[Rfam]
RNA sequence: UAGCCCUGCGGGGUGCUCAGGUCCGCCGCAUCUCCUGGGUCCGUGGGGUUCGGCCGGCGUGCGGGCGAUAUCGGGUGGCCUCCCCGACCGUCCGCCGCCGGCCACCUU
Numbered sequence: 001u002a003g004c005c006c007u008g009c010g011g012g013g014u015g016c017u018c019a020g021g022u023c024c025g026c027c028g029c030a031u032c033u034c035c036u037g038g039g040u041c042c043g044u045g046g047g048g049u050u051c052g053g054c055c056g057g058c059g060u061g062c063g064g065g066c067g068a069u070a071u072c073g074g075g076u077g078g079c080c081u082c083c084c085c086g087a088c089c090g091u092c093c094g095c096c097g098c099c100g101g102c103c104a105c106c107u108u
Base pairs, nucleotide, nucleotide: 003049004048005047006046007045008044009043010042016039017038018037019036020035021034052103053102054101055100056099057098058097059096061095062094
Shown here is a 108-nucleotide RNA sequence from Aquabacter sp. L1I39, a member of the family "EcpR1". Rfam's curators write: Perviously named SmelC291, SmrC10, or Sra33. According to its overproduction phenotype it was renamed Elongated Cell Phenotype RNA1. The source organism's lineage runs through Bacteria, Alphaproteobacteria, Hyphomicrobiales, Xanthobacteraceae and Aquabacter. It is annotated as a small RNA.